Rfam assigns this 120-nucleotide sequence from Salisediminibacterium beveridgei to the family "PyrR binding site". The base pairs follow the family's consensus structure, which is taken from published work. The source organism's lineage runs through Bacteria, Bacillati, Bacillota, Bacilli and Salisediminibacterium. The family's RNA type in Rfam is cis-regulatory element. Rfam describes the family as follows. This family represents the PyrR binding site and terminator structure. This RNA structure is found upstream of a variety of genes involved in pyrimidine biosynthesis and transport. The alignment also includes a portion of the antiterminator structure.

RNA sequence: CCUCCCUUUAAACCAGUUCAGAGAAACUGGAAAGGGGUAUAUUCCUCCUCUAUUCUGCACGUAUAGCCGUGUGACAAGAGAGCGAAUUACCUCUUUGAAUCUCAAAGGGGUUUUUUGUUU
Numbered sequence: 001c002c003u004c005c006c007u008u009u010a011a012a013c014c015a016g017u018u019c020a021g022a023g024a025a026a027c028u029g030g031a032a033a034g035g036g037g038u039a040u041a042u043u044c045c046u047c048c049u050c051u052a053u054u055c056u057g058c059a060c061g062u063a064u065a066g067c068c069g070u071g072u073g074a075c076a077a078g079a080g081a082g083c084g085a086a087u088u089a090c091c092u093c094u095u096u097g098a099a100u101c102u103c104a105a106a107g108g109g110g111u112u113u114u115u116u117g118u119u120u
Base pairs, nucleotide, nucleotide: 003037004036005035006034007033008032009031013030014029015028016027017026018025051082053080054079055078056077060073061072062071063070064069085115086114089111090110091109092108093107094106095105096104097103098102
Dot-bracket structure: ..(((((((...((((((......))))))))))))).............(.((((...(((((....)))))...)))).)..((..((((((((((...))))))))))..)).....